[Rfam]
The record is a 396-nucleotide sequence from Sphingobacterium gobiense, which matches "Bacterial RNase P class A" in Rfam. About the family: Ribonuclease P (RNase P) is a ubiquitous endoribonuclease, found in archaea, bacteria and eukarya as well as chloroplasts and mitochondria. Lineage of the source: Bacteria > Bacteroidota > Sphingobacteriia > Sphingobacteriaceae > Sphingobacterium.
RNA sequence: AAGCAAACUGGUUCUAUCGCUGUCGCAUCUUCGGAUGGGAGAGAGGAAAGUCCGGGCAACAUAGAGCAACACGCUUCCUAACGGGAAGGCUCUUACGUAAGUAGGAGACAGAAAGUGCCACAGAAAAUAUACCGCUCCGACUUGUCGGAGUAAGGGUGAAAACGUGAGGUAAGAGCUCACGGUCUUGCAUGGCGACAUGCAUUGCGGUAAACCUCGUGUGUUGAAAGACCAAAUAGGUUACGAAACUUGAAGGCUGCUCGUCUUCUUCCGACCUUUCGGAAUUCGUAAUGGGUAGGUUGAUCGAGCUUGUGUGCAAAUGCAAGCCUAGAUAAAUGAUAGAAAUCCACUCGCUUUAAGCGAUGGAUACAGAACCCGGCUUACAAGGUUUGCUUCUUU
Numbered sequence: 001a002a003g004c005a006a007a008c009u010g011g012u013u014c015u016a017u018c019g020c021u022g023u024c025g026c027a028u029c030u031u032c033g034g035a036u037g038g039g040a041g042a043g044a045g046g047a048a049a050g051u052c053c054g055g056g057c058a059a060c061a062u063a064g065a066g067c068a069a070c071a072c073g074c075u076u077c078c079u080a081a082c083g084g085g086a087a088g089g090c091u092c093u094u095a096c097g098u099a100a101g102u103a104g105g106a107g108a109c110a111g112a113a114a115g116u117g118c119c120a121c122a123g124a125a126a127a128u129a130u131a132c133c134g135c136u137c138c139g140a141c142u143u144g145u146c147g148g149a150g151u152a153a154g155g156g157u158g159a160a161a162a163c164g165u166g167a168g169g170u171a172a173g174a175g176c177u178c179a180c181g182g183u184c185u186u187g188c189a190u191g192g193c194g195a196c197a198u199g200c201a202u203u204g205c206g207g208u209a210a211a212c213c214u215c216g217u218g219u220g221u222u223g224a225a226a227g228a229c230c231a232a233a234u235a236g237g238u239u240a241c242g243a244a245a246c247u248u249g250a251a252g253g254c255u256g257c258u259c260g261u262c263u264u265c266u267u268c269c270g271a272c273c274u275u276u277c278g279g280a281a282u283u284c285g286u287a288a289u290g291g292g293u294a295g296g297u298u299g300a301u302c303g304a305g306c307u308u309g310u311g312u313g314c315a316a317a318u319g320c321a322a323g324c325c326u327a328g329a330u331a332a333a334u335g336a337u338a339g340a341a342a343u344c345c346a347c348u349c350g351c352u353u354u355a356a357g358c359g360a361u362g363g364a365u366a367c368a369g370a371a372c373c374c375g376g377c378u379u380a381c382a383a384g385g386u387u388u389g390c391u392u393c394u395u396u
Stems, first nucleotide, its partner, number of pairs: 001392009011381001012341007020043002023040002026037003048379003052376005057223004064275003069219005074088005089109001090107007110214002115212002117208003132155002134151007163181006186201006227298004237289006266281005305324008